This 150-nucleotide RNA sequence from Streptosporangium roseum belongs to the Rfam family "c-di-AMP riboswitch aptamer (ydaO/yuaA leader)". It scores 92 bits against the family's covariance model. Rfam describes the family as follows. This family represents a conserved RNA structure found upstream of the ydaO and yuaA genes in Bacillus subtilis and related genes in other bacteria. The ydaO/yuaA element is thought to act as a genetic 'off' switch for the ydaO and yuaA genes in its native state.
RNA sequence: AGCGCUGAACCGCCGAAUCCCCGGACCCGGGGAACCGGGGACCCACCCUUUAGUCCCCUGGGGUGAAUCCGAGGUGCCCCCGCACCCUCGGUAGGGCUACCUCCGGCCCGAACCCGUCAGCUAACCCGGUAGGCGGCCGAGAGAGGAGCC
Numbered sequence: 001a002g003c004g005c006u007g008a009a010c011c012g013c014c015g016a017a018u019c020c021c022c023g024g025a026c027c028c029g030g031g032g033a034a035c036c037g038g039g040g041a042c043c044c045a046c047c048c049u050u051u052a053g054u055c056c057c058c059u060g061g062g063g064u065g066a067a068u069c070c071g072a073g074g075u076g077c078c079c080c081c082g083c084a085c086c087c088u089c090g091g092u093a094g095g096g097c098u099a100c101c102u103c104c105g106g107c108c109c110g111a112a113c114c115c116g117u118c119a120g121c122u123a124a125c126c127c128g129g130u131a132g133g134c135g136g137c138c139g140a141g142a143g144a145g146g147a148g149c150c
Base pairs, nucleotide, nucleotide: 011135012134013133014132018033019032020031021030022029034130035129036128037127038126039125044060045059061115062114063113069091070090071089072088073087074086094109095108096107097106